[Rfam]
RNA sequence: CCUAGGAGUAGCCUCCUAGGUUUUCUAAUGCCGUCCCUUCAGGACU
Number, nucleotide and partner (000 for none) at each position: 001c020002c019003u018004a017005g016006g015007a014008g013009u000010a000011g000012c000013c008014u007015c006016c005017u004018a003019g002020g001021u000022u000023u000024u000025c000026u000027a000028a000029u000030g000031c000032c000033g045034u044035c043036c042037c000038u000039u000040c000041a000042g036043g035044a034045c033046u000
Acido-Lenti-1 RNA: a 46-nucleotide RNA sequence from Brumimicrobium oceani. The source organism's lineage runs through Bacteria, Bacteroidota, Flavobacteriia, Flavobacteriales and Brumimicrobium. Pairs were carried over by alignment from the consensus structure, which is taken from published work.